About this RNA
The family of this 141-nucleotide RNA from Glycine max is "mir-393 microRNA precursor family".
Nucleotides: 141
Base pairs, nucleotide, nucleotide: 002141003140004139005138006137008135010133011132012131013130014129015128016127017126018125019124020123021122023120024119025118026117028116029115030114031113032112033111034110035109036108037107
Number, partner (000 for none) and nucleotide at each position: 001000g002141g003140a004139g005138g006137a007000g008135g009000c010133a011132u012131c013130c014129a015128a016127a017126g018125g019124g020123a021122u022000c023120g024119c025118a026117u027000u028116g029115a030114u031113c032112c033111c034110a035109a036108a037107u038000u039000u040000c041000a042000g043000a044000u045000u046000u047000a048000u049000a050000a051000a052000u053000u054000u055000g056000u057000c058000u059000u060000u061000c062000u063000c064000u065000u066000c067000c068000c069000u070000u071000g072000u073000c074000a075000a076000u077000a078000u079000u080000u081000g082000g083000g084000a085000u086000c087000a088000u089000u090000u091000c092000u093000c094000u095000u096000c097000c098000c099000u100000u101000c102000u103000c104000a105000a106000u107037a108036u109035u110034u111033g112032g113031g114030a115029u116028c117026a118025u119024g120023c121000u122021a123020u124019c125018c126017c127016u128015u129014u130013g131012g132011a133010u134000u135008c136000c137006u138005c139004c140003u141002u